[Rfam]
Rfam assigns this 106-nucleotide RNA from Domibacillus mangrovi to the family "RNA Staph. aureus E (RoxS)". Rfam links the family to the GO term regulation of translational initiation. The base pairs follow the family's consensus structure, which is taken from published work. It was shown to be regulated by the presence of nitric oxide (NO). In Bacillus subtilis it controls expression of genes with functions related to oxidative stress and oxidation-reduction reactions and it was renamed RoxS (for related to oxidative stress). For this family Rfam cites "A search for small noncoding RNAs in Staphylococcus aureus reveals a conserved sequence motif for regulation" (Geissmann et al., Nucleic Acids Res, 2009).

RNA sequence: GUGAAAUUGAUCACUUAUAAACAUAUACCCCUUUGUUUGACUGUGAAAAAUUUCUUCCAUCCCCUUUGUUCGUAAGGAAAAGCUCCGCUUUGGCGGGGCUUUUUCU
Numbered sequence: 001g002u003g004a005a006a007u008u009g010a011u012c013a014c015u016u017a018u019a020a021a022c023a024u025a026u027a028c029c030c031c032u033u034u035g036u037u038u039g040a041c042u043g044u045g046a047a048a049a050a051u052u053u054c055u056u057c058c059a060u061c062c063c064c065u066u067u068g069u070u071c072g073u074a075a076g077g078a079a080a081a082g083c084u085c086c087g088c089u090u091u092g093g094c095g096g097g098g099c100u101u102u103u104u105c106u
Stems, first nucleotide, its partner, number of pairs: 003054006011046004018039006070074001078103011